Background:
The family of this 81-nucleotide sequence from Manacus vitellinus is "Small nucleolar RNA SNORD93". The organism belongs to Manacus, within Eukaryota. Pairs were carried over by alignment from the consensus structure, which was predicted with RNAalifold. A search with the family's covariance model found it, with a score of 60 bits. It is annotated as a C/D-box small nucleolar RNA.
RNA sequence: UGGCCAAGGAUGAAAACAAUAAUCUGAUUCUUUACAUGCUUGAUACGCAAAAAUGAUGAAUGAAAGGAUUUUCUGAGGCCA
Numbered sequence: 001u002g003g004c005c006a007a008g009g010a011u012g013a014a015a016a017c018a019a020u021a022a023u024c025u026g027a028u029u030c031u032u033u034a035c036a037u038g039c040u041u042g043a044u045a046c047g048c049a050a051a052a053a054u055g056a057u058g059a060a061u062g063a064a065a066g067g068a069u070u071u072u073c074u075g076a077g078g079c080c081a
Stems, first nucleotide, its partner, number of pairs: 002080004